[Rfam]
The family of this 127-nucleotide sequence from Salvia splendens is "Small nucleolar RNA snoR77". The family has 5 seed sequences and 649 matches in Rfam 15.1. The family's RNA type in Rfam is H/ACA-box small nucleolar RNA. The literature on the family includes a 2002 paper in Curr Biol by Marker et al., "Experimental RNomics: identification of 140 candidates for small non-messenger RNAs in the plant Arabidopsis thaliana".

RNA sequence: AGGCAACCUCCUUCUGUCUUGAGAAAAGAAUGGGAAGGAAGGUGUUUAUCUGCUCAUAAAAAGAACUUUUGCUCUUCAGACUUGCUGAGUUUUUCCUUGAAGCUGGUCUAGUAAGCUCAAGAACAUU
Numbered sequence: 001a002g003g004c005a006a007c008c009u010c011c012u013u014c015u016g017u018c019u020u021g022a023g024a025a026a027a028g029a030a031u032g033g034g035a036a037g038g039a040a041g042g043u044g045u046u047u048a049u050c051u052g053c054u055c056a057u058a059a060a061a062a063g064a065a066c067u068u069u070u071g072c073u074c075u076u077c078a079g080a081c082u083u084g085c086u087g088a089g090u091u092u093u094u095c096c097u098u099g100a101a102g103c104u105g106g107u108c109u110a111g112u113a114a115g116c117u118c119a120a121g122a123a124c125a126u127u
Stems, first nucleotide, its partner, number of pairs: 002046004007042002009039007017032001066121003071116003078109005084103003089095001
Dot-bracket structure: .((((.(((((((((.(..............)))))))).))))))...................(((..(((....(((((.(((..(.....).....))).)))))....)))..)))......